Rfam assigns this 131-nucleotide RNA sequence from Myotis davidii to the family "Small nucleolar RNA SNORA42/SNORA80 family". The source organism's lineage runs through Eukaryota, Metazoa, Vertebrata, Eutheria and Myotis. For this family Rfam cites "A computational screen for mammalian pseudouridylation guide H/ACA RNAs" (Schattner et al., RNA, 2006).
[Rfam]
RNA sequence: ACAUGUCCUAAUGGUGGGCCCUUCUCUGUGGACCUCUCAUAGUGGACCCAUGCUAGAGUACAUUGCAGCCUUGAAACAUUGCUCAGCCUCCUUACCUGUGGGCUGUGAGCACUGAAGGGGGUUGUUGAGUG
Numbered sequence: 001a002c003a004u005g006u007c008c009u010a011a012u013g014g015u016g017g018g019c020c021c022u023u024c025u026c027u028g029u030g031g032a033c034c035u036c037u038c039a040u041a042g043u044g045g046a047c048c049c050a051u052g053c054u055a056g057a058g059u060a061c062a063u064u065g066c067a068g069c070c071u072u073g074a075a076a077c078a079u080u081g082c083u084c085a086g087c088c089u090c091c092u093u094a095c096c097u098g099u100g101g102g103c104u105g106u107g108a109g110c111a112c113u114g115a116a117g118g119g120g121g122u123u124g125u126u127g128a129g130u131g
Stems, first nucleotide, its partner, number of pairs: 002045001009042001011040004016035003019031002066124006077114002082109002084105006

Pairs were carried over by alignment from the consensus structure, which was predicted with RNAalifold. Rfam's curators write: The members of this family belong to the H/ACA class of snoRNAs that guide the sites of modification of uridines to pseudouridines. Human ACA42 (SNORA42) was cloned from HeLa cells by immunoprecipitation with anti-GAR1 antibody. Its is predicted to guide the pseudouridylation of residues U109 and U572 of 18S rRNA. ACA42 shares the same host gene with ACA26, ACA46, ACA50. This family also includes mammalian snoRNA ACA67 (SNORA80) which was identified by computational screening and its expression in mouse experimentally verified by Northern blot and primer extension analysis. ACA67 is proposed to guide the pseudouridylation of the same 18S rRNA residues as ACA42.